[Rfam]
RNA sequence: GGGAAACUGGGAAGGGGACUGGAACGAGAGCCAUCAAGGACCCCAGGAACUAUAGGCUCU
Numbered sequence: 001g002g003g004a005a006a007c008u009g010g011g012a013a014g015g016g017g018a019c020u021g022g023a024a025c026g027a028g029a030g031c032c033a034u035c036a037a038g039g040a041c042c043c044c045a046g047g048a049a050c051u052a053u054a055g056g057c058u059c060u
Stems, first nucleotide, its partner, number of pairs: 014044004019038002022035001024034001028059005

Rfam assigns this 60-nucleotide RNA from Sphenodon punctatus to the family "Ma3 gene ribosomal frameshift signal".
The family has 12 seed sequences and 565 matches in Rfam 15.1.
The base pairs follow the family's consensus structure, which is taken from published work.
For this family Rfam cites "A functional -1 ribosomal frameshift signal in the human paraneoplastic Ma3 gene" (Wills et al., J Biol Chem, 2006).
The organism belongs to Sphenodon, within Eukaryota.